[Rfam]
RNA sequence: CGAUGCGACGCUUUGGCGAUUUAGCUCCAUGACGUUGCGUGUAUGCUCAUAAAGCUAGAUUACCAAAGCAUCGCGUCG
Numbered sequence: 001c002g003a004u005g006c007g008a009c010g011c012u013u014u015g016g017c018g019a020u021u022u023a024g025c026u027c028c029a030u031g032a033c034g035u036u037g038c039g040u041g042u043a044u045g046c047u048c049a050u051a052a053a054g055c056u057a058g059a060u061u062a063c064c065a066a067a068g069c070a071u072c073g074c075g076u077c078g
Stems, first nucleotide, its partner, number of pairs: 001078005007072002010069007018061009029050004

The family of this 78-nucleotide RNA sequence from Heliconius melpomene is "mir-9/mir-79 microRNA precursor family". Rfam links the family to the GO terms miRNA-mediated post-transcriptional gene silencing and RISC complex. It is one of the family's seed sequences. For this family Rfam cites "Temporal regulation of microRNA expression in Drosophila melanogaster mediated by hormonal signals and broad-Complex gene activity" (Sempere et al., Dev Biol, 2003). Rfam 15.1 lists 5,647 matches to the family in 934 species. Lineage of the source: Eukaryota > Mandibulata > Lepidoptera > Heliconiinae > Heliconius.